Description: A member of the RNA family "Small nucleolar RNA R44/J54/Z268 family" from Brassica oleracea, 86 nucleotides long. The match comes from Rfam's covariance-model search (86 bits). Pairs were carried over by alignment from the consensus structure, which was predicted with PFOLD.
[Rfam]
RNA sequence: GGUGCAAGUGACGAUGAAAAGACAGGGACAUCAGAGAUUCUCCGAAAUGAUGACUAAUGUCUAAAUGGGAAUCUCUCUGAUGCACU
Numbered sequence: 001g002g003u004g005c006a007a008g009u010g011a012c013g014a015u016g017a018a019a020a021g022a023c024a025g026g027g028a029c030a031u032c033a034g035a036g037a038u039u040c041u042c043c044g045a046a047a048u049g050a051u052g053a054c055u056a057a058u059g060u061c062u063a064a065a066u067g068g069g070a071a072u073c074u075c076u077c078u079g080a081u082g083c084a085c086u
Base pairs, nucleotide, nucleotide: 002085003084004083005082006081
Lineage of the source: Eukaryota > eudicotyledons > rosids > Brassicales > Brassica oleracea.